[Rfam]
RNA sequence: AGAUGCUGGUUUCACGUGGUGGUUUAGAUGUGUUCUACCAGGGUCUAGCACCAUUUGAAAUCAGUGUUCU
Numbered sequence: 001a002g003a004u005g006c007u008g009g010u011u012u013c014a015c016g017u018g019g020u021g022g023u024u025u026a027g028a029u030g031u032g033u034u035c036u037a038c039c040a041g042g043g044u045c046u047a048g049c050a051c052c053a054u055u056u057g058a059a060a061u062c063a064g065u066g067u068u069c070u
Base pairs, nucleotide, nucleotide: 001070002069003068005065006064007063008062009061010060011059012058013057014056016054017053018052019051020050021049025047026046027045028044
A member of the RNA family "mir-29 microRNA precursor family" from Danionella cerebrum, 70 nucleotides long.
For this family Rfam cites "microRNAs: tiny regulators with great potential" (Ambros, Cell, 2001).
This family represents the microRNA (miRNA) precursors mir-29.
The match comes from Rfam's covariance-model search (66 bits).